[Rfam]
The record is a 79-nucleotide RNA sequence from Mesocricetus auratus, which matches "Small nucleolar RNA SNORD115" in Rfam.
By type it is a C/D-box small nucleolar RNA.
Rfam links the family to the GO terms RNA processing and nucleolus.
Taxonomically the source falls in Mesocricetus (Eukaryota, Craniata, Sarcopterygii, Tetrapoda).
RNA sequence: GGGUCAAUAAUGACAUAUCUACGUCAUGAAGAGAGGUGAUGACAAAAAUAUCAUGCUCUGGUUCCAGCUGCUGAGGCCA
Numbered sequence: 001g002g003g004u005c006a007a008u009a010a011u012g013a014c015a016u017a018u019c020u021a022c023g024u025c026a027u028g029a030a031g032a033g034a035g036g037u038g039a040u041g042a043c044a045a046a047a048a049u050a051u052c053a054u055g056c057u058c059u060g061g062u063u064c065c066a067g068c069u070g071c072u073g074a075g076g077c078c079a
Stems, first nucleotide, its partner, number of pairs: 002078003005073002008070002